[Rfam]
RNA sequence: ACGAUUCUUCGGGGCAGGGUGCGCGCAAGCAAUUCCCGACCGACGGUGAUAAUGCAUGAUGCAUUUUAGUCCGUGAACCACAUUGUGGCUGAUCCGGUGCGAAUCCGGGACCGACAGUAUAGUCUGGAUGAGAGAAGAAGCAU
Numbered sequence: 001a002c003g004a005u006u007c008u009u010c011g012g013g014g015c016a017g018g019g020u021g022c023g024c025g026c027a028a029g030c031a032a033u034u035c036c037c038g039a040c041c042g043a044c045g046g047u048g049a050u051a052a053u054g055c056a057u058g059a060u061g062c063a064u065u066u067u068a069g070u071c072c073g074u075g076a077a078c079c080a081c082a083u084u085g086u087g088g089c090u091g092a093u094c095c096g097g098u099g100c101g102a103a104u105c106c107g108g109g110a111c112c113g114a115c116a117g118u119a120u121a122g123u124c125u126g127g128a129u130g131a132g133a134g135a136a137g138a139a140g141c142a143u
Base pairs, nucleotide, nucleotide: 003141005139006138007137008136009135010134017037018036019035039123040122041113042112043074044073045072046071069111070110078088079087093109094108095107096106097105115126116125117124
RNA: FMN riboswitch aptamer (RFN element)
Organism: Agathobacter ruminis